[Rfam]
The record is a 392-nucleotide sequence from Jeotgalicoccus saudimassiliensis, which matches "Bacterial RNase P class B" in Rfam. Its Rfam clan is "RNaseP clan". From the family's description: Ribonuclease P (RNase P) is a ubiquitous endoribonuclease, found in archaea, bacteria and eukarya as well as chloroplasts and mitochondria. Its best characterised activity is the generation of mature 5'-ends of tRNAs by cleaving the 5'-leader elements of precursor-tRNAs. Cellular RNase Ps are ribonucleoproteins. RNA from bacterial RNase Ps retains its catalytic activity in the absence of the protein subunit, i.e. it is a ribozyme.
RNA sequence: UAACUCGGAUAAUCGCUAUGCAGCAUGACUGCAUAGAGGAAAGUCCAUGCUCACACAGUCUGAGAUGACUGUAGUGUUCGUGCCAGACGAAACAAUAAGUCUGGGCAAUGAUAUUUUAUAUCUUGACGGCUGCGAAAUAUUCUAAGUGCUUACGCAUAUGAGUAGAGUAGCUUUAAAAGUGCCACAGAAACGAGCUUCUGAAGAAAUGAUGAAGAUGGAACGCGGUAAACCCCUCGAGUGAGCAAUCCAAAUUAGGUAGGAGCACUUUCCAACAGAAAUUCAACUGGCGGAGAGAUAUUAUUCAUUUAAUAUAGACAGAUGAUUAUCACCAAUGUGCGAGUGUAUACUAGUGCACGUCAGCAGCACAGCGGGACAGAACAUGGCUUAUAGAG
Numbered sequence: 001u002a003a004c005u006c007g008g009a010u011a012a013u014c015g016c017u018a019u020g021c022a023g024c025a026u027g028a029c030u031g032c033a034u035a036g037a038g039g040a041a042a043g044u045c046c047a048u049g050c051u052c053a054c055a056c057a058g059u060c061u062g063a064g065a066u067g068a069c070u071g072u073a074g075u076g077u078u079c080g081u082g083c084c085a086g087a088c089g090a091a092a093c094a095a096u097a098a099g100u101c102u103g104g105g106c107a108a109u110g111a112u113a114u115u116u117u118a119u120a121u122c123u124u125g126a127c128g129g130c131u132g133c134g135a136a137a138u139a140u141u142c143u144a145a146g147u148g149c150u151u152a153c154g155c156a157u158a159u160g161a162g163u164a165g166a167g168u169a170g171c172u173u174u175a176a177a178a179g180u181g182c183c184a185c186a187g188a189a190a191c192g193a194g195c196u197u198c199u200g201a202a203g204a205a206a207u208g209a210u211g212a213a214g215a216u217g218g219a220a221c222g223c224g225g226u227a228a229a230c231c232c233c234u235c236g237a238g239u240g241a242g243c244a245a246u247c248c249a250a251a252u253u254a255g256g257u258a259g260g261a262g263c264a265c266u267u268u269c270c271a272a273c274a275g276a277a278a279u280u281c282a283a284c285u286g287g288c289g290g291a292g293a294g295a296u297a298u299u300a301u302u303c304a305u306u307u308a309a310u311a312u313a314g315a316c317a318g319a320u321g322a323u324u325a326u327c328a329c330c331a332a333u334g335u336g337c338g339a340g341u342g343u344a345u346a347c348u349a350g351u352g353c354a355c356g357u358c359a360g361c362a363g364c365a366c367a368g369c370g371g372g373a374c375a376g377a378a379c380a381u382g383g384c385u386u387a388u389a390g391a392g
Stems, first nucleotide, its partner, number of pairs: 004392003007388001008327007016036006041386003045383005050242005055072006078237003082233001083104006105127001106125003110122003128232002132171002139163004146157003179230002181226003195214004202207001246261003265294006295312006329371002333367005